[Rfam]
RNA sequence: GAAUGAAGGUAGCAUGGUACUGUGCACGGAAACUGAAUCAUGAGUUUGAAAUGUCUGUGCCCUCUCUGAAAACCUUUGUAUGUUCUUUGAUUUGCGGGCCUGGUUUAAACCCACAUUC
Numbered sequence: 001g002a003a004u005g006a007a008g009g010u011a012g013c014a015u016g017g018u019a020c021u022g023u024g025c026a027c028g029g030a031a032a033c034u035g036a037a038u039c040a041u042g043a044g045u046u047u048g049a050a051a052u053g054u055c056u057g058u059g060c061c062c063u064c065u066c067u068g069a070a071a072a073c074c075u076u077u078g079u080a081u082g083u084u085c086u087u088u089g090a091u092u093u094g095c096g097g098g099c100c101u102g103g104u105u106u107a108a109a110c111c112c113a114c115a116u117u118c
Base pairs, nucleotide, nucleotide: 012025013024014023015022043101044100046098047097053091054090055089057085059083
The family of this 118-nucleotide RNA from Raphanus sativus is "Small nucleolar RNA snoR100". Gene Ontology terms of the family: nucleolus and RNA processing. The match comes from Rfam's covariance-model search (108 bits). Pairs were carried over by alignment from the consensus structure, which was predicted with WAR.